[Rfam]
RNA sequence: UACUAACUUUUCUUUUAUUUUUUUCUGGCAGGUUUCUUUAGUUUAUGACUAGAAGAAACCCAU
Numbered sequence: 001u002a003c004u005a006a007c008u009u010u011u012c013u014u015u016u017a018u019u020u021u022u023u024u025c026u027g028g029c030a031g032g033u034u035u036c037u038u039u040a041g042u043u044u045a046u047g048a049c050u051a052g053a054a055g056a057a058a059c060c061c062a063u
Base pairs, nucleotide, nucleotide: 031060032059033058034057035056037055038054039053040050041049042048
The family of this 63-nucleotide sequence from Gossypium mustelinum is "U7 small nuclear RNA".
Lineage of the source: Eukaryota > Streptophyta > Mesangiospermae > Malvaceae > Gossypium.